[Rfam]
RNA sequence: GAUAGCCGUAGAUGGUUAAAGGGUCUAAAGUUGGGUUAGUAACGACGCGAACGGUUUGGGAUGCAGCAUCAUACAGUCCACCGAAAAACAUCGCUUUAGCCACGAGUAACAAGGCACCUGCACCUAAGAAUAAAAGGUGAUGUCCUAAAAUCAUACCCAGUUGUGCGGGGUCGUUCCA
Numbered sequence: 001g002a003u004a005g006c007c008g009u010a011g012a013u014g015g016u017u018a019a020a021g022g023g024u025c026u027a028a029a030g031u032u033g034g035g036u037u038a039g040u041a042a043c044g045a046c047g048c049g050a051a052c053g054g055u056u057u058g059g060g061a062u063g064c065a066g067c068a069u070c071a072u073a074c075a076g077u078c079c080a081c082c083g084a085a086a087a088a089c090a091u092c093g094c095u096u097u098a099g100c101c102a103c104g105a106g107u108a109a110c111a112a113g114g115c116a117c118c119u120g121c122a123c124c125u126a127a128g129a130a131u132a133a134a135a136g137g138u139g140a141u142g143u144c145c146u147a148a149a150a151u152c153a154u155a156c157c158c159a160g161u162u163g164u165g166c167g168g169g170g171u172c173g174u175u176c177c178a
Base pairs, nucleotide, nucleotide: 136175137174138173139172140171141170144169145168146167
Dot-bracket structure: .......................................................................................................................................((((((..(((....................)))))))))...